[Rfam]
RNA sequence: AACCUUUUUAAUUAAAGUCCAGAGAGGCUUUCAAAAGGGAAGAGCAGCUGCCGCUAAAUGUGAUGCAGUGUAUCUUUUGAACACCUUUUGAGGGCUUUUCUCAAAAGGUGUUUUUUU
Numbered sequence: 001a002a003c004c005u006u007u008u009u010a011a012u013u014a015a016a017g018u019c020c021a022g023a024g025a026g027g028c029u030u031u032c033a034a035a036a037g038g039g040a041a042g043a044g045c046a047g048c049u050g051c052c053g054c055u056a057a058a059u060g061u062g063a064u065g066c067a068g069u070g071u072a073u074c075u076u077u078u079g080a081a082c083a084c085c086u087u088u089u090g091a092g093g094g095c096u097u098u099u100c101u102c103a104a105a106a107g108g109u110g111u112u113u114u115u116u117u
Stems, first nucleotide, its partner, number of pairs: 003037001005035003014031006041077004047071002080112014

This 117-nucleotide RNA sequence from Jeotgalibacillus campisalis belongs to the Rfam family "PyrR binding site". The literature on the family includes a 2001 paper in Nucleic Acids Res by Bonner et al., "Molecular recognition of pyr mRNA by the Bacillus subtilis attenuation regulatory protein PyrR". This family represents the PyrR binding site and terminator structure. NCBI's taxonomy places the organism under Bacteria, Bacillati, Bacillota, Caryophanales, Jeotgalibacillus.